RNA sequence: CCGGCACCGGUUCACCGCACGGCACCAGUCGUGUGGACCCGGCGGCC
Numbered sequence: 001c002c003g004g005c006a007c008c009g010g011u012u013c014a015c016c017g018c019a020c021g022g023c024a025c026c027a028g029u030c031g032u033g034u035g036g037a038c039c040c041g042g043c044g045g046c047c
Stems, first nucleotide, its partner, number of pairs: 003047003007042004015036009

L31-Actinobacteria ribosomal protein leader: a 47-nucleotide sequence from Halopolyspora algeriensis. On this family, see Eckert and Weinberg, BMC Microbiol 2020: "Discovery of 20 novel ribosomal leader candidates in bacteria and archaea". Clan: Ribosomal Protein L31 Leader clan. Rfam classes the family as a cis-regulatory leader. The match comes from Rfam's covariance-model search (52 bits).